A member of the RNA family "Y RNA" from Homo sapiens, 79 nucleotides long. Pairs were carried over by alignment from the consensus structure, which is taken from published work.
RNA sequence: AGUUGGUCAGAGCACUUUGGGUUAUUGUUAACCUGAUUUAACGUAGUCUCCCCCAACAACCAUGCUUGACUCGUUUUGU
Numbered sequence: 001a002g003u004u005g006g007u008c009a010g011a012g013c014a015c016u017u018u019g020g021g022u023u024a025u026u027g028u029u030a031a032c033c034u035g036a037u038u039u040a041a042c043g044u045a046g047u048c049u050c051c052c053c054c055a056a057c058a059a060c061c062a063u064g065c066u067u068g069a070c071u072c073g074u075u076u077u078g079u
Stems, first nucleotide, its partner, number of pairs: 001075003005071004010067002014063001016058001018056001020054002026043003030039002
By type it is a non-coding RNA gene. A search with the family's covariance model found it, with a score of 39 bits. On this family, see Teunissen et al., Nucleic Acids Res 2000: "Conserved features of Y RNAs: a comparison of experimentally derived secondary structures".